Shown here is a 126-nucleotide sequence from Fukomys damarensis, a member of the family "Small nucleolar RNA SNORA40".
A reference for the family is Ofengand and Bakin (1997), "Mapping to nucleotide resolution of pseudouridine residues in large subunit ribosomal RNAs from representative eukaryotes, prokaryotes, archaebacteria, mitochondria and chloroplasts", J Mol Biol.
About the family: The snoRNA ACA 40 belongs to the H/ACA family of snoRNAs and guides the pseudouridylation of 28S rRNA subunit at position U4565. NB This family has a high threshold value to exclude a large number of closely related sequences that do not appear to have conserved H and ACA boxes, and may be pseudogenes.
Rfam classes the family as an H/ACA-box small nucleolar RNA.
The family has 28 seed sequences and 2,550 matches in Rfam 15.1.
The base pairs follow the family's consensus structure, which was predicted with RNAalifold.
The source organism's lineage runs through Eukaryota, Euteleostomi, Tetrapoda, Theria and Fukomys.

RNA sequence: UGCAACAGUGCUAUUUUUGUCUAUCUUGUGGACUAAGACUUAUGGACAGAUGCAAAAAAUAAAUCCUCUUUUGCAACCCCGGACUCACUGUUGAGUAAGAGUUUUGAUACCAUGAGAAGGAAUAUC
Dot-bracket structure: ((((.(.((.(..((((.((....(....).)).)))).....).)).).))))........((.((.(((((.....(.((((((............)))))).)......))))).)).))...